The record is a 280-nucleotide sequence from Trichoderma atroviride, which matches "A. fumigatus sRNA Afu_309" in Rfam.
[Rfam]
RNA sequence: UUCUUCUUAACAUACACGGAUCUGUGCUCUGCGGUCCUCUGCGUUCACGCGUCAGGGUCGACUGCUUUGCAGCUCGAUAACUCUAUGGAGCCAUCAACUUGUUAUGGUGUCAAUCAUCCUAUCGACAGGUCCAAGAAGAAUUCGACCUCUGGCUGCCUCAUUCGCUGUCGCAAGACGGCUUGAGUGUUGUGGCUGGAGGACCCGGGGGCCCCAUAUUCCGAACCUUUCACCAAGGCCGUCGGCCGAUGAAGUUGAGGAAAACCAUGGGAUGCCUACAUCU
Dot-bracket structure: .................((((((((((...(.(((((((((((......)).)))))..)))).)...)).......(.(.(...(((.(((.............))).)))........)).)))))))))..............((((((.......((((((((((....))))))..)))).......))))))........((((((((........((((..((...((((...))))......)).))))......)))))..))).......
Record summary: Rfam classes the family as a small RNA. The match comes from Rfam's covariance-model search (143 bits). Lineage of the source: Eukaryota > saccharomyceta > sordariomyceta > Sordariomycetes > Trichoderma atroviride.